[Rfam]
RNA sequence: GGGUCCGUGGGCACUGACGCCCACGGAGGUUACGCGGCUGGUCGGGCCGCCAUCCG
Numbered sequence: 001g002g003g004u005c006c007g008u009g010g011g012c013a014c015u016g017a018c019g020c021c022c023a024c025g026g027a028g029g030u031u032a033c034g035c036g037g038c039u040g041g042u043c044g045g046g047c048c049g050c051c052a053u054c055c056g
Stems, first nucleotide, its partner, number of pairs: 005026008035056003040051003